This 63-nucleotide RNA from Lactobacillus gasseri belongs to the Rfam family "Fluoride riboswitch aptamer (crcB RNA motif)". The source organism's lineage runs through Bacteria, Bacillota, Lactobacillaceae, Lactobacillus and Lactobacillus gasseri. The base pairs follow the family's consensus structure, which is taken from published work. Rfam's curators put it in the seed alignment.
RNA sequence: AUUAUAAUAGGUGAUGGCGUUCACCAAUUUAACCGAUUAAGAUCUGACGACGCCUACUUUCUU
Numbered sequence: 001a002u003u004a005u006a007a008u009a010g011g012u013g014a015u016g017g018c019g020u021u022c023a024c025c026a027a028u029u030u031a032a033c034c035g036a037u038u039a040a041g042a043u044c045u046g047a048c049g050a051c052g053c054c055u056a057c058u059u060u061c062u063u
Stems, first nucleotide, its partner, number of pairs: 010025004016054006035044003